[Rfam]
RNA sequence: GCCGGGAGGUUGAACAUCCUGCAUAGUGCUGCCAGGAAAUCCCUAUUUCAUAUAAGAGGGGGCUGGCUGGUUGCAUAUGUAGGAUGUCCCAUCUCCCAGCCCACUUCGUC
Number, nucleotide and partner (000 for none) at each position: 001g000002c000003c000004g097005g096006g095007a094008g093009g092010u091011u000012g089013a000014a087015c086016a085017u084018c083019c082020u081021g080022c079023a078024u077025a076026g000027u075028g074029c073030u000031g071032c070033c069034a068035g067036g000037a000038a000039a000040u062041c061042c060043c059044u058045a000046u057047u056048u055049c000050a000051u000052a000053u000054a000055a048056g047057a046058g044059g043060g042061g041062g040063c000064u000065g000066g000067c035068u034069g033070g032071u031072u000073g029074c028075a027076u025077a024078u023079g022080u021081a020082g019083g018084a017085u016086g015087u014088c000089c012090c000091a010092u009093c008094u007095c006096c005097c004098a000099g000100c000101c000102c000103a000104c000105u000106u000107c000108g000109u000110c000
The record is a 110-nucleotide sequence from Gorilla gorilla, which matches "mir-448 microRNA precursor family" in Rfam.
NCBI's taxonomy places the organism under Eukaryota, Deuterostomia, Haplorrhini, Hominidae, Gorilla.
The family's consensus secondary structure was predicted with RNAalifold.
Rfam's curators put it in the seed alignment.
The family has 10 seed sequences and 125 matches in Rfam 15.1.
The literature on the family includes a 2010 paper in BMC Genomics by Linsen et al., "Small RNA expression and strain specificity in the rat".